[Rfam]
Shown here is a 266-nucleotide RNA from Evansella caseinilytica, a member of the family "Bacterial large signal recognition particle RNA".
The family is grouped with related families in Rfam's "SRP clan".
The family's consensus secondary structure is taken from published work.
Its family is annotated with SRP-dependent cotranslational protein targeting to membrane, signal sequence recognition and signal recognition particle, plasma membrane targeting in the Gene Ontology.
The match comes from Rfam's covariance-model search (234 bits).
Taxonomically the source falls in Evansella (Bacteria, Bacillati, Bacilli, Caryophanales).

RNA sequence: CCGUGCUAAGCGGGGAGGUAGCGGUGCCCUGUACUCGCAAUCCGCUAUAGCGAGGUCGAAUCCCUUCUCGAGGUUCUGGCAUUUUAGGGUCUGACCUGAGUAAGUGGUGUUGACGUUUGGGUUCUGCGCAACGGAAACUCGUGAACCCUGUCAGGUCCGGAAGGAAGCAGCAGUAAGCGAUCCUUUCCGUGUGCCGCAGAGUCGCCUGAAUCGAGCUAACUGCUCAGGUAACGCCUAGGAUGCUUUUAUCAACAGAAGGUGCACGG
Numbered sequence: 001c002c003g004u005g006c007u008a009a010g011c012g013g014g015g016a017g018g019u020a021g022c023g024g025u026g027c028c029c030u031g032u033a034c035u036c037g038c039a040a041u042c043c044g045c046u047a048u049a050g051c052g053a054g055g056u057c058g059a060a061u062c063c064c065u066u067c068u069c070g071a072g073g074u075u076c077u078g079g080c081a082u083u084u085u086a087g088g089g090u091c092u093g094a095c096c097u098g099a100g101u102a103a104g105u106g107g108u109g110u111u112g113a114c115g116u117u118u119g120g121g122u123u124c125u126g127c128g129c130a131a132c133g134g135a136a137a138c139u140c141g142u143g144a145a146c147c148c149u150g151u152c153a154g155g156u157c158c159g160g161a162a163g164g165a166a167g168c169a170g171c172a173g174u175a176a177g178c179g180a181u182c183c184u185u186u187c188c189g190u191g192u193g194c195c196g197c198a199g200a201g202u203c204g205c206c207u208g209a210a211u212c213g214a215g216c217u218a219a220c221u222g223c224u225c226a227g228g229u230a231a232c233g234c235c236u237a238g239g240a241u242g243c244u245u246u247u248a249u250c251a252a253c254a255g256a257a258g259g260u261g262c263a264c265g266g
Base pairs, nucleotide, nucleotide: 001266002265003264004263005262006261010056011055012030013029014028015027017025019023034054035053036052037051038050063259064258065257066256067255068254072250073249074248079243080242081241082240083239084238085237086236087235088234092230093229096227097226098225099224100223101222104220105219106217107216108215115211116210117209118208119207120206121205122204123200124199125198126197127196128195129191130190132189133188134187135186136185139180140179141178142177148173149172150171151170156165157164158163